[Rfam]
RNA sequence: GUUCCAUAGACAUUUUGGCAUUCUGUCCACCUCCAUUGGUGAUGAUGGCCAUUUGGAGGUGGCCAGUAUGCCAAACGGGCUCUGUGUA
Numbered sequence: 001g002u003u004c005c006a007u008a009g010a011c012a013u014u015u016u017g018g019c020a021u022u023c024u025g026u027c028c029a030c031c032u033c034c035a036u037u038g039g040u041g042a043u044g045a046u047g048g049c050c051a052u053u054u055g056g057a058g059g060u061g062g063c064c065a066g067u068a069u070g071c072c073a074a075a076c077g078g079g080c081u082c083u084g085u086g087u088a
Stems, first nucleotide, its partner, number of pairs: 011078001015074006024065002027062008
Dot-bracket structure: ..........(...((((((...((.((((((((....................)))))))).))...))))))...)..........
This 88-nucleotide RNA sequence from Glycine max belongs to the Rfam family "MIR394 microRNA precursor family". A search with the family's covariance model found it, with a score of 64 bits. A reference for the family is Jones-Rhoades and Bartel (2004), "Computational identification of plant microRNAs and their targets, including a stress-induced miRNA", Mol Cell.